Rfam assigns this 117-nucleotide RNA from Alteromonas hispanica to the family "ALIL pseudoknot". Pairs were carried over by alignment from the consensus structure, which is taken from published work. The family has 26 seed sequences and 2,146 matches in Rfam 15.1. Its family is annotated with positive regulation of translational frameshifting in the Gene Ontology. Rfam classes the family as a cis-regulatory element. The organism belongs to Alteromonas, within Bacteria.
[Rfam]
RNA sequence: CGCUCUUUUCACCCAGGCGGAGCUCGAACGCAAACCCAGGUAAUAGUUAAAUUUAUUGAAGCCAAUCGUGCGUUGUAUGGUGUCCAGCCGAUUUGUCGUCAAGUGCAAGUCGCACCG
Numbered sequence: 001c002g003c004u005c006u007u008u009u010c011a012c013c014c015a016g017g018c019g020g021a022g023c024u025c026g027a028a029c030g031c032a033a034a035c036c037c038a039g040g041u042a043a044u045a046g047u048u049a050a051a052u053u054u055a056u057u058g059a060a061g062c063c064a065a066u067c068g069u070g071c072g073u074u075g076u077a078u079g080g081u082g083u084c085c086a087g088c089c090g091a092u093u094u095g096u097c098g099u100c101a102a103g104u105g106c107a108a109g110u111c112g113c114a115c116c117g
Base pairs, nucleotide, nucleotide: 017031018030019029078117079116080115081114082113089112090111092109093108094107095106096105